Description
A member of the RNA family "TPP riboswitch aptamer (THI element)" from Absicoccus porci, 108 nucleotides long. The organism belongs to Absicoccus, within Bacteria. Its family is annotated with thiamine pyrophosphate binding in the Gene Ontology. A search with the family's covariance model found it, with a score of 58 bits.
RNA sequence: UGUUACAAAAAUGGGAGCUGGCGAAACCGGCUGAGAAAAGACUGUAUGGUCUUGACCAAUAACCUGAUUUGGAUAAUGCCAACGUAGGGAAAUACGCAAAUAUCGUGG
Dot-bracket structure: .....(..(..(((..(((((.....)))))......(((((......)))))..)))....((((..((((......))))..))))....)..)............